[Rfam]
RNA sequence: UCGUCCUGCCUCGUGAUCGUCUUCUCACCCUUCACGUUGGCAGGCGGAUGAAAGAAGACCCCCGCGAGGACGUGACUUGCGGGGGUCUUCC
Numbered sequence: 001u002c003g004u005c006c007u008g009c010c011u012c013g014u015g016a017u018c019g020u021c022u023u024c025u026c027a028c029c030c031u032u033c034a035c036g037u038u039g040g041c042a043g044g045c046g047g048a049u050g051a052a053a054g055a056a057g058a059c060c061c062c063c064g065c066g067a068g069g070a071c072g073u074g075a076c077u078u079g080c081g082g083g084g085g086u087c088u089u090c091c
Stems, first nucleotide, its partner, number of pairs: 001047003005044006013035004019029001054090015
Shown here is a 91-nucleotide RNA from Streptomyces broussonetiae, a member of the family "sodF sRNA". The match comes from Rfam's covariance-model search (92 bits). By type it is a small RNA. On this family, see Kim et al., Nucleic Acids Res 2014: "Inverse regulation of Fe- and Ni-containing SOD genes by a Fur family regulator Nur through small RNA processed from 3'UTR of the sodF mRNA". The family has 6 seed sequences and 336 matches in Rfam 15.1.